L13-Bacteroidia ribosomal protein leader: a 79-nucleotide RNA sequence from Segatella oulorum. A reference for the family is Eckert and Weinberg (2020), "Discovery of 20 novel ribosomal leader candidates in bacteria and archaea", BMC Microbiol.

RNA sequence: UGAGAAAGUGCUUAGAAUUCUCAGCAGUUCAGUGGUGUUAAUAGCGUUCUCUCUGGCCAGAUGACGCGGUUAGUGAAUC
Number, nucleotide and partner (000 for none) at each position: 001u023002g022003a021004g020005a019006a018007a000008g000009u000010g000011c000012u000013u000014a000015g000016a000017a000018u006019u005020c004021u003022c002023a001024g000025c000026a000027g000028u000029u000030c000031a000032g000033u000034g000035g000036u000037g000038u073039u072040a071041a070042u069043a000044g067045c066046g065047u064048u063049c000050u061051c060052u059053c000054u000055g000056g000057c000058c000059a052060g051061a050062u000063g048064a047065c046066g045067c044068g000069g042070u041071u040072a039073g038074u000075g000076a000077a000078u000079c000

Lineage of the source: Bacteria > Pseudomonadati > Bacteroidota > Prevotellaceae > Segatella oulorum. It is one of the family's seed sequences.